This 45-nucleotide RNA from Oryzias sinensis belongs to the Rfam family "Histone 3' UTR stem-loop". The base pairs follow the family's consensus structure, which is taken from published work. On this family, see Williams and Marzluff, Nucleic Acids Res 1995: "The sequence of the stem and flanking sequences at the 3' end of histone mRNA are critical determinants for the binding of the stem-loop binding protein". The match comes from Rfam's covariance-model search (36 bits). Lineage of the source: Eukaryota > Chordata > Neoteleostei > Adrianichthyoidei > Oryzias. The mRNAs of metazoan histone genes lack a poly-A tail. 3' end processing occurs at a site between a highly conserved stem-loop (modelled by this family) and a purine rich region around 20 nts downstream (the histone downstream element, or HDE). The stem-loop is bound by a 31 kDa stem-loop binding protein (SLBP - also termed the histone hairpin binding protein, or HBP). Together with U7 snRNA binding of the HDE, SLBP binding nucleate s the formation of the processing complex. The histone 3' UTR stem-loop is also involved in nucleocytoplasmic transport of the mRNA, and in stability regulation and translation efficiency in the cytoplasm. The family's RNA type in Rfam is cis-regulatory element.
[Rfam]
RNA sequence: CAAACGGCUCUUUUCAGAGCCACACACCUCAUCUGAAGAGCUGAA
Numbered sequence: 001c002a003a004a005c006g007g008c009u010c011u012u013u014u015c016a017g018a019g020c021c022a023c024a025c026a027c028c029u030c031a032u033c034u035g036a037a038g039a040g041c042u043g044a045a
Base pairs, nucleotide, nucleotide: 006021007020008019009018010017011016